[Rfam]
RNA sequence: CUCUUAUCCCGAGCCGGUGGAGGGACAGGCCCGAUGAAGCCCAGCAACCGUCACAACUGUACAUGUGUGAAAUGGUGCUAACCUGUGGCAAGGCGCAGUCCUUGAACGAUAAGAG
Numbered sequence: 001c002u003c004u005u006a007u008c009c010c011g012a013g014c015c016g017g018u019g020g021a022g023g024g025a026c027a028g029g030c031c032c033g034a035u036g037a038a039g040c041c042c043a044g045c046a047a048c049c050g051u052c053a054c055a056a057c058u059g060u061a062c063a064u065g066u067g068u069g070a071a072a073u074g075g076u077g078c079u080a081a082c083c084u085g086u087g088g089c090a091a092g093g094c095g096c097a098g099u100c101c102u103u104g105a106a107c108g109a110u111a112a113g114a115g
Base pairs, nucleotide, nucleotide: 001115002114003113004112005111006110007109008108013042016041017040018039022032023031024030026088028086029084043079044078045077046076048075049074051070052069053068054067055066089104090103091102092101093100

The record is a 115-nucleotide RNA from Geobacillus kaustophilus, which matches "SAM riboswitch aptamer (S box leader)" in Rfam. The source organism's lineage runs through Bacteria, Bacillati, Caryophanales, Anoxybacillaceae and Geobacillus kaustophilus.